[Rfam]
RNA sequence: CUCAUUAUGUGUAAAUAACACACACAGGUCGGCACAUACACCGGGGUGCUCUCAUGCGGCUGAUUCAUAGGUCAAUUGAUGUGAAUAAUCCGCAGCUAAAGAGUCGGUGUCAUGGGAUCUGUGGAGGCAUAAC
Dot-bracket structure: ......................((((((((....(((..((((....(((((...............................................)))))))))...))).))))))))..........

Shown here is a 133-nucleotide sequence from Xenorhabdus szentirmaii, a member of the family "t44 RNA". It is annotated as a small RNA. Taxonomically the source falls in Xenorhabdus szentirmaii (Bacteria, Gammaproteobacteria, Morganellaceae, Xenorhabdus).